[Rfam]
Rfam assigns this 264-nucleotide RNA sequence from Azomonas macrocytogenes to the family "rne-II RNA".

RNA sequence: AUGAGUGUAAGGUGGAGAUGCACAGUCUUCGGACUGCGUAGCGCAGGCUUUUCAAGACGAGUUAUUCCGUCCGCUACCGAAGCUGAUUCCUCUUCCUGACAAGUGCUUCUGUCCUAUAUACAGAAAGCAGGAGACGUAGUCGCGGCCCGGCUCGACCGGAUACCGCUGGACACGGUGCAGUCCCAUGGACGUCGCCGAUACGCACCAGACACCGACCACGAGAGUCGUGCGUGCCAAUUGCCUUUUCCGGAAGCCCGGAAACCA
Number, nucleotide and partner (000 for none) at each position: 001a000002u000003g000004a000005g000006u000007g000008u000009a000010a000011g000012g000013u000014g093015g092016a091017g090018a000019u000020g000021c000022a000023c085024a084025g083026u000027c082028u081029u080030c079031g078032g077033a000034c000035u000036g074037c073038g072039u000040a049041g048042c047043g000044c000045a000046g000047g042048c041049u040050u000051u000052u000053c000054a000055a000056g071057a070058c069059g068060a000061g000062u000063u000064a000065u000066u000067c000068c059069g058070u057071c056072c038073g037074c036075u000076a000077c032078c031079g030080a029081a028082g027083c025084u024085g023086a000087u000088u000089c000090c017091u016092c015093u014094u132095c131096c130097u129098g128099a000100c000101a000102a000103g000104u000105g000106c000107u000108u000109c000110u000111g000112u000113c000114c000115u000116a000117u000118a000119u000120a000121c000122a000123g000124a000125a000126a000127g000128c098129a097130g096131g095132a094133g000134a000135c202136g201137u200138a199139g171140u170141c169142g166143c165144g164145g163146c000147c000148c158149g157150g156151c000152u000153c000154g000155a000156c150157c149158g148159g000160a000161u000162a000163c145164c144165g143166c142167u000168g000169g141170a140171c139172a000173c000174g000175g195176u194177g193178c000179a000180g190181u189182c000183c000184c000185a000186u000187g000188g000189a181190c180191g000192u000193c177194g176195c175196c000197g000198a000199u138200a137201c136202g135203c000204a000205c000206c000207a000208g000209a232210c231211a000212c229213c227214g226215a225216c224217c000218a000219c000220g000221a000222g000223a000224g216225u215226c214227g213228u000229g212230c000231g210232u209233g000234c000235c000236a000237a000238u000239u000240g000241c000242c000243u000244u261245u260246u259247c258248c257249g256250g000251a000252a000253g000254c000255c000256c249257g248258g247259a246260a245261a244262c000263c000264a000

The family's consensus secondary structure is taken from published work.